Rfam assigns this 173-nucleotide RNA sequence from Thermohalobacter berrensis to the family "Group II catalytic intron D1-D4-3". The pairing is the family consensus, mapped onto this sequence. About the family: Group II introns are found in rRNA, tRNA and mRNA of organelles in fungi, plants and protists, and also in mRNA in bacteria.

RNA sequence: UCCAUCGUGAGGUGGAAUCUGAAGGAAGCUGAAGGCAAAAUCCUGGUCCGAGGUACACGAAUCACAUUGGAGGCUGUAUAAACUGGGUGAGUUUGCAUAACAAAACAAAGCCCUAAAUGGUCCGAAAGUUUAUGCAGUAAAUGUGGCGGAUAUAUGGGAGGAAAGUAGUUACG
Numbered sequence: 001u002c003c004a005u006c007g008u009g010a011g012g013u014g015g016a017a018u019c020u021g022a023a024g025g026a027a028g029c030u031g032a033a034g035g036c037a038a039a040a041u042c043c044u045g046g047u048c049c050g051a052g053g054u055a056c057a058c059g060a061a062u063c064a065c066a067u068u069g070g071a072g073g074c075u076g077u078a079u080a081a082a083c084u085g086g087g088u089g090a091g092u093u094u095g096c097a098u099a100a101c102a103a104a105a106c107a108a109a110g111c112c113c114u115a116a117a118u119g120g121u122c123c124g125a126a127a128g129u130u131u132a133u134g135c136a137g138u139a140a141a142u143g144u145g146g147c148g149g150a151u152a153u154a155u156g157g158g159a160g161g162a163a164a165g166u167a168g169u170u171a172c173g
Stems, first nucleotide, its partner, number of pairs: 001016006030171003035166002041159005046151005062146006073138003077134007085113004091106004
Dot-bracket structure: ((((((....)))))).............(((..((....((((((((((...........((((((.....(((.(((((((.((((..((((........))))...))))..............))))))).)))..)))))))))))...))))).....))..)))..